[Rfam]
RNA sequence: AUUCCGGUUGAUCCUGCCGGACCCGAUCGCUAUCGGGGUAGGGCUAAGCCAUGGGAGUCGUACAUCCCGCAAGGGGUGUGGCGGACUGCUGAGUAACACGUGGUCAACCUAACCUAGGGAAGGGAAUAACCCCGGGAAACUGGGGAUAAUUCCCUAUAGCUGAGGAGUCCUGGAACGGUUCCUCGGCGAAAGCCCGCAAGGGCGCCCUAGGAUGGGACUGCGGCCCAUCAGGUAGUUGGGGGGUUAAAGGCCCUCCAAGCCGAUAACGGGUAGGGGCCCUGGGAGGGGGAGCCCCCAGAUGGGCACUGAGACAAUGGCCCAGGUCCUACGGGGCGCACCAGGCGCGCAACGUCUUCAAUGCACGAAAGUGUGAAAGCGCUACCCCGAGUGCCCCUUUGGGGCUUUUCUACGCUCUAAAAAGGCGUGGGAAUAAGCGGAGGGCAAGACUGGUGUCAGCCGCCGCGGUAAUACCAGCUCCGCGAGUGAUCGGGACUCUUAUUG
Numbered sequence: 001a002u003u004c005c006g007g008u009u010g011a012u013c014c015u016g017c018c019g020g021a022c023c024c025g026a027u028c029g030c031u032a033u034c035g036g037g038g039u040a041g042g043g044c045u046a047a048g049c050c051a052u053g054g055g056a057g058u059c060g061u062a063c064a065u066c067c068c069g070c071a072a073g074g075g076g077u078g079u080g081g082c083g084g085a086c087u088g089c090u091g092a093g094u095a096a097c098a099c100g101u102g103g104u105c106a107a108c109c110u111a112a113c114c115u116a117g118g119g120a121a122g123g124g125a126a127u128a129a130c131c132c133c134g135g136g137a138a139a140c141u142g143g144g145g146a147u148a149a150u151u152c153c154c155u156a157u158a159g160c161u162g163a164g165g166a167g168u169c170c171u172g173g174a175a176c177g178g179u180u181c182c183u184c185g186g187c188g189a190a191a192g193c194c195c196g197c198a199a200g201g202g203c204g205c206c207c208u209a210g211g212a213u214g215g216g217a218c219u220g221c222g223g224c225c226c227a228u229c230a231g232g233u234a235g236u237u238g239g240g241g242g243g244u245u246a247a248a249g250g251c252c253c254u255c256c257a258a259g260c261c262g263a264u265a266a267c268g269g270g271u272a273g274g275g276g277c278c279c280u281g282g283g284a285g286g287g288g289g290a291g292c293c294c295c296c297a298g299a300u301g302g303g304c305a306c307u308g309a310g311a312c313a314a315u316g317g318c319c320c321a322g323g324u325c326c327u328a329c330g331g332g333g334c335g336c337a338c339c340a341g342g343c344g345c346g347c348a349a350c351g352u353c354u355u356c357a358a359u360g361c362a363c364g365a366a367a368g369u370g371u372g373a374a375a376g377c378g379c380u381a382c383c384c385c386g387a388g389u390g391c392c393c394c395u396u397u398g399g400g401g402c403u404u405u406u407c408u409a410c411g412c413u414c415u416a417a418a419a420a421g422g423c424g425u426g427g428g429a430a431u432a433a434g435c436g437g438a439g440g441g442c443a444a445g446a447c448u449g450g451u452g453u454c455a456g457c458c459g460c461c462g463c464g465g466u467a468a469u470a471c472c473a474g475c476u477c478c479g480c481g482a483g484u485g486a487u488c489g490g491g492a493c494u495c496u497u498a499u500u501g
Stems, first nucleotide, its partner, number of pairs: 004020005022491010033387009042345001048343003052340003057082003062079007089298003099222007108215002113211007121155004130145006160186008169178002192203004224270003231261003236258008273295004277288004300321005323334004351377001353376003359372005390402005407427007434480006447474004456463002
Rfam assigns this 501-nucleotide part of an RNA from Sulfuracidifex metallicus to the family "Archaeal small subunit ribosomal RNA". Lineage of the source: Archaea > Thermoproteati > Sulfolobales > Sulfolobaceae > Sulfuracidifex metallicus. For this family Rfam cites "Crystal structure of the ribosome at 5.5 A resolution" (Yusupov et al., Science, 2001).